RNA sequence: GACUUAUCAAGAGAGGCGGAGGGAUUGGCCCGAUGAAGCCCGGCAACCCCUGUGUUCUUUCGUUGGCGAAGAACACGGGAAGGUGCUACAUCCAGCAGGAGAAUUUCCUGAGAGAUAAGGA
Numbered sequence: 001g002a003c004u005u006a007u008c009a010a011g012a013g014a015g016g017c018g019g020a021g022g023g024a025u026u027g028g029c030c031c032g033a034u035g036a037a038g039c040c041c042g043g044c045a046a047c048c049c050c051u052g053u054g055u056u057c058u059u060u061c062g063u064u065g066g067c068g069a070a071g072a073a074c075a076c077g078g079g080a081a082g083g084u085g086c087u088a089c090a091u092c093c094a095g096c097a098g099g100a101g102a103a104u105u106u107c108c109u110g111a112g113a114g115a116u117a118a119g120g121a
Base pairs, nucleotide, nucleotide: 003119004118005117006116007115008114013041015040016039017038021031022030023029025095026094027093028092042087043086044085045084047083048082049079050078051077052076053075054074055073056072057071058070059069060068091113096110097109098108099107100106101105
A member of the RNA family "SAM riboswitch aptamer (S box leader)" from Aneurinibacillus danicus, 121 nucleotides long. Rfam describes the family as follows. The SAM riboswitch is found upstream of a number of genes which code for proteins involved in methionine or cysteine biosynthesis in Gram-positive bacteria. Gene Ontology term of the family: regulation of gene expression. The match comes from Rfam's covariance-model search (85 bits).